[Rfam]
RNA: TPP riboswitch aptamer (THI element)
RNA sequence: AAUAUGGGCGGGGGGUGCCGGAAAAGGCCGGCUGAGAUACAGAACGAGUUUUCUGUGACCCUUAUACACCUGAUCUGGGUAAUGCCAGCGUAGGAAUAGCCAAUAAGGUAUUGU
Numbered sequence: 001a002a003u004a005u006g007g008g009c010g011g012g013g014g015g016u017g018c019c020g021g022a023a024a025a026g027g028c029c030g031g032c033u034g035a036g037a038u039a040c041a042g043a044a045c046g047a048g049u050u051u052u053c054u055g056u057g058a059c060c061c062u063u064a065u066a067c068a069c070c071u072g073a074u075c076u077g078g079g080u081a082a083u084g085c086c087a088g089c090g091u092a093g094g095a096a097u098a099g100c101c102a103a104u105a106a107g108g109u110a111u112u113g114u
Stems, first nucleotide, its partner, number of pairs: 007101003011063004016057001017032005039056005069094004075088004